[Rfam]
RNA: msiK RNA
RNA sequence: GUCUCAUUCCAUUCACUAAGGAUCGUCCGGCACGUUCCUGCCGGUGAAGGAGCGUUAU
Numbered sequence: 001g002u003c004u005c006a007u008u009c010c011a012u013u014c015a016c017u018a019a020g021g022a023u024c025g026u027c028c029g030g031c032a033c034g035u036u037c038c039u040g041c042c043g044g045u046g047a048a049g050g051a052g053c054g055u056u057a058u
Stems, first nucleotide, its partner, number of pairs: 009050002012048004027044006